[Rfam]
RNA sequence: CGGUCCCUCAAACAACCGAGCUUCCCCGUCAAGCCACAGCUAUCUCUGACAUUGCUGGCAAGAUGUUGGCAGUUCAGUUGUAUGACGGAGACC
Number, nucleotide and partner (000 for none) at each position: 001c000002g000003g000004u000005c000006c000007c000008u000009c000010a000011a000012a000013c080014a079015a078016c077017c000018g075019a074020g073021c072022u071023u000024c069025c068026c000027c065028g064029u063030c062031a000032a000033g059034c058035c057036a000037c000038a056039g055040c054041u000042a000043u000044c000045u000046c000047u000048g000049a000050c000051a000052u000053u000054g040055c039056u038057g035058g034059c033060a000061a000062g030063a029064u028065g027066u000067u000068g025069g024070c000071a022072g021073u020074u019075c018076a000077g016078u015079u014080g013081u000082a000083u000084g000085a000086c000087g000088g000089a000090g000091a000092c000093c000